TPP riboswitch aptamer (THI element): a 104-nucleotide RNA sequence from Proteiniclasticum ruminis. Rfam's curators write: Vitamin B(1) in its active form thiamin pyrophosphate (TPP) is an essential coenzyme that is synthesised by coupling of pyrimidine and thiazole moieties in bacteria.
[Rfam]
RNA sequence: AGCCAUGGCUAGGGGUGCUUUCAACAAGCUGAGAGACAAUAUCAUUGUCAACCCUGUUACCUGAUCUGGUUAGUACCAGCGUAGGGAAGCGGAUAAACGAAUGU
Numbered sequence: 001a002g003c004c005a006u007g008g009c010u011a012g013g014g015g016u017g018c019u020u021u022c023a024a025c026a027a028g029c030u031g032a033g034a035g036a037c038a039a040u041a042u043c044a045u046u047g048u049c050a051a052c053c054c055u056g057u058u059a060c061c062u063g064a065u066c067u068g069g070u071u072a073g074u075a076c077c078a079g080c081g082u083a084g085g086g087a088a089g090c091g092g093a094u095a096a097a098c099g100a101a102u103g104u
Stems, first nucleotide, its partner, number of pairs: 006092001008090003011055004017029004036048005060085004066079004
It scores 70 bits against the family's covariance model.
NCBI's taxonomy places the organism under Bacteria, Bacillati, Clostridia, Eubacteriales, Proteiniclasticum.